This 82-nucleotide sequence from Papaver somniferum belongs to the Rfam family "Small nucleolar RNA Z107/R87". The family's consensus secondary structure was predicted with RNAfold. It scores 62 bits against the family's covariance model. The literature on the family includes a 2001 paper in J Mol Biol by Barneche et al., "Identification of 66 box C/D snoRNAs in Arabidopsis thaliana: extensive gene duplications generated multiple isoforms predicting new ribosomal RNA 2'-O-methylation sites". Gene Ontology terms of the family: nucleolus and RNA processing.
[Rfam]
RNA sequence: GAUUGCGGUGAUGACUCCAUAAUAUCAAGCUCAACAGACCGGAUUGCAGGUUUUUCUCUGUCGAGGAAAUAUUUGAGCAAUC
Numbered sequence: 001g002a003u004u005g006c007g008g009u010g011a012u013g014a015c016u017c018c019a020u021a022a023u024a025u026c027a028a029g030c031u032c033a034a035c036a037g038a039c040c041g042g043a044u045u046g047c048a049g050g051u052u053u054u055u056c057u058c059u060g061u062c063g064a065g066g067a068a069a070u071a072u073u074u075g076a077g078c079a080a081u082c
Stems, first nucleotide, its partner, number of pairs: 001082006
Taxonomically the source falls in Papaver (Eukaryota, Streptophytina, Mesangiospermae, Ranunculales).